[Rfam]
Nucleotides: 078
Stems, first nucleotide, its partner, number of pairs: 002077005008071002011068003016064001020061003024058003028054001030052001
Number, partner (000 for none) and nucleotide at each position: 001000a002077g003076c004075u005074u006073u007000c008071c009070g010000a011068a012067u013066c014000c015000a016064u017000u018000c019000a020061a021060a022059g023000a024058u025057u026056u027000c028054a029000c030052c031000a032000g033000a034000c035000a036000c037000c038000a039000a040000c041000c042000c043000a044000c045000u046000a047000g048000g049000g050000c051000u052030g053000a054028u055000c056026a057025g058024a059022c060021u061020u062000c063000c064016a065000a066013g067012a068011u069000a070009u071008g072000u073006g074005a075004a076003g077002u078000u

This 78-nucleotide sequence from Schistosoma mattheei belongs to the Rfam family "mir-3492 microRNA precursor family". The family's consensus secondary structure was predicted with RNAalifold. Rfam 15.1 lists 21,496 matches to the family in 13 species. Taxonomically the source falls in Schistosoma (Eukaryota, Platyhelminthes, Rhabditophora, Schistosomatidae). A search with the family's covariance model found it, with a score of 51 bits.